[Rfam]
RNA sequence: GAGUGACGGUUGCGUGCGAGGUUAAGGUGAGAAGCCGGAGCCGCAGCGAAAGCGAGUCUGAACAGGGCGCAUGAGUACGUAGUCGUCGACCCGAAACCGGGUGAUCUACCCAUGUCCAGGGUGAAGUUCCGGUAACACGGAAUGGAGGCCCGAACCUUUUGGUGUUGAAAAACCAUAGGAUGAGGUGUGGGUAGGGGUGAAAUGCCAAUCGAACUCGGAGAUAGCUGGUU
Numbered sequence: 001g002a003g004u005g006a007c008g009g010u011u012g013c014g015u016g017c018g019a020g021g022u023u024a025a026g027g028u029g030a031g032a033a034g035c036c037g038g039a040g041c042c043g044c045a046g047c048g049a050a051a052g053c054g055a056g057u058c059u060g061a062a063c064a065g066g067g068c069g070c071a072u073g074a075g076u077a078c079g080u081a082g083u084c085g086u087c088g089a090c091c092c093g094a095a096a097c098c099g100g101g102u103g104a105u106c107u108a109c110c111c112a113u114g115u116c117c118a119g120g121g122u123g124a125a126g127u128u129c130c131g132g133u134a135a136c137a138c139g140g141a142a143u144g145g146a147g148g149c150c151c152g153a154a155c156c157u158u159u160u161g162g163u164g165u166u167g168a169a170a171a172a173c174c175a176u177a178g179g180a181u182g183a184g185g186u187g188u189g190g191g192u193a194g195g196g197g198u199g200a201a202a203u204g205c206c207a208a209u210c211g212a213a214c215u216c217g218g219a220g221a222u223a224g225c226u227g228g229u230u
Stems, first nucleotide, its partner, number of pairs: 005087013020042004026036003046053002056068004090228002093225001097218006106194011117182001119151004126143006155179003160175004196206003

Rfam assigns this 230-nucleotide part of an RNA from Thermoactinomyces daqus to the family "Bacterial large subunit ribosomal RNA". Its family is annotated with structural constituent of ribosome and ribosome in the Gene Ontology. A search with the family's covariance model found it, with a score of 2981 bits. The family is grouped with related families in Rfam's "LSU clan". For this family Rfam cites "The comparative RNA web (CRW) site: an online database of comparative sequence and structure information for ribosomal, intron, and other RNAs" (Cannone et al., BMC Bioinformatics, 2002). The family's consensus secondary structure is taken from published work. The source organism's lineage runs through Bacteria, Bacillati, Caryophanales, Thermoactinomycetaceae and Thermoactinomyces.